[Rfam]
RNA sequence: GGUAGUAACAGCAUAGCCGGGUGAGAAUCUCGGCGACCGCAUGGGCAAGGGUUUCCCGGCAAUGCGUCAUCAGCCGGGAGUUAGCCGGUCCUAAAAACAACCUCAACAGAAUUGUUUGAAUGGGAAACUGGUUAAUAUUCCAGUGCCUUGAAAGUUCGUUAACACCUUUUCUGUCGCUUCCGGAUAGGGUAAGCAGAACCGUCGUUCUGUCCAAGUAUUCUAGCUUUGAGGAGUACCGUAAUGGCGAGAAUCAAAGCGAGAUACGAAUGGCCCUUCGCAAGGAGGGUUUGCUUGAGUCCAGGAGACACUGAAAGCAGAAACAGGGAGAUACUUUCAAGACCGUACCGAGAUCCGACACUGGUGCCCUGGAUGAGAAGUCUAAGGUCUAU
Dot-bracket structure: ...............((((((.......))))))((((....((((..((...((((((...((......)).))))))......(((.((...((((((.((....))..))))))....))...(((((........)))))..((((((((...............(((....((((.(((..(((((.(((((........)))))....((((......(((((......((.....))......))))).....))))...........(....).......)))))...))).))))...........)))............)))))))).)))..)).....((......)).))))((((.......)))).))))...
Numbered sequence: 001g002g003u004a005g006u007a008a009c010a011g012c013a014u015a016g017c018c019g020g021g022u023g024a025g026a027a028u029c030u031c032g033g034c035g036a037c038c039g040c041a042u043g044g045g046c047a048a049g050g051g052u053u054u055c056c057c058g059g060c061a062a063u064g065c066g067u068c069a070u071c072a073g074c075c076g077g078g079a080g081u082u083a084g085c086c087g088g089u090c091c092u093a094a095a096a097a098c099a100a101c102c103u104c105a106a107c108a109g110a111a112u113u114g115u116u117u118g119a120a121u122g123g124g125a126a127a128c129u130g131g132u133u134a135a136u137a138u139u140c141c142a143g144u145g146c147c148u149u150g151a152a153a154g155u156u157c158g159u160u161a162a163c164a165c166c167u168u169u170u171c172u173g174u175c176g177c178u179u180c181c182g183g184a185u186a187g188g189g190u191a192a193g194c195a196g197a198a199c200c201g202u203c204g205u206u207c208u209g210u211c212c213a214a215g216u217a218u219u220c221u222a223g224c225u226u227u228g229a230g231g232a233g234u235a236c237c238g239u240a241a242u243g244g245c246g247a248g249a250a251u252c253a254a255a256g257c258g259a260g261a262u263a264c265g266a267a268u269g270g271c272c273c274u275u276c277g278c279a280a281g282g283a284g285g286g287u288u289u290g291c292u293u294g295a296g297u298c299c300a301g302g303a304g305a306c307a308c309u310g311a312a313a314g315c316a317g318a319a320a321c322a323g324g325g326a327g328a329u330a331c332u333u334u335c336a337a338g339a340c341c342g343u344a345c346c347g348a349g350a351u352c353c354g355a356c357a358c359u360g361g362u363g364c365c366c367u368g369g370a371u372g373a374g375a376a377g378u379c380u381a382a383g384g385u386c387u388a389u
Stems, first nucleotide, its partner, number of pairs: 016034006035386004043366004049346002054079006063072002086342003090123002095117006102109002127144005147338008170318003177304004182299003187293005193210005215264004225255005236244002276281001352361002367381004